[Rfam]
RNA: ZMP/ZTP riboswitch aptamer (pfl RNA motif)
Organism: Sporomusa ovata
RNA sequence: GUGGAUUUGUGCUACUGACGGUUAAGUGGAGUUUACCACGUGAAGUGCAAAUUCUUGAAAAACAAUGUUGACCGUCUGGGCAAUAAUU
Number, nucleotide and partner (000 for none) at each position: 001g000002u000003g054004g053005a052006u051007u050008u049009g048010u047011g046012c045013u000014a000015c042016u000017g076018a075019c074020g073021g072022u000023u000024a000025a000026g039027u038028g037029g036030a000031g000032u000033u000034u000035a000036c029037c028038a027039c026040g000041u000042g015043a000044a000045g012046u011047g010048c009049a008050a007051a006052u005053u004054c003055u000056u000057g000058a000059a000060a000061a000062a000063c000064a000065a000066u082067g081068u080069u079070g000071a000072c021073c020074g019075u018076c017077u000078g000079g069080g068081c067082a066083a000084u000085a000086a000087u000088u000